The family of this 393-nucleotide part of an RNA from Dactylonectria macrodidyma is "Ascomycota telomerase RNA". On this family, see Qi et al., Nucleic Acids Res 2013: "The common ancestral core of vertebrate and fungal telomerase RNAs". Taxonomically the source falls in Dactylonectria (Eukaryota, Fungi, Ascomycota, Hypocreales). The family's RNA type in Rfam is non-coding RNA gene. Pairs were carried over by alignment from the consensus structure.
RNA sequence: AAUCAAACAGAAGGAGCCGCUUGGCCGAGUCCCGAUUUAUCCGGAAUGCAUUGUGUUACGUCGACUUCUGGCGGGUUGUGUCGGCGAAGGCUUCGAACUUUGUGGGGUUGACAGCUCGCGAACAGCUUCUUGACUGGCAACUCCCCACUUUCUGAAGCGGCUCUGACGGCUGACGUCCAAAGCAGCGUCGGGACCCAUCUCGAGUUGGCGUCAAAGUUUAGUGCUUGUCUGAUGCUGCUAAGGACCCGGCCAUUCGUUAAGUGGAUGAUCGUGGGAGCUAGUGUCGAAGUUGGGGUUGUUGCCGUUGGAUCUUUGGACAGACCGCAUUGGAUGAGGCAGUCCUGGUUGUCCUCUCGCCAGAAAUGGUGCGGAGGACAACCCCCCGCUGCGAGG
Dot-bracket structure: ...............................................................................................................................................................................................((((((........))).))).((((.....)))).......................................................................................................................................................................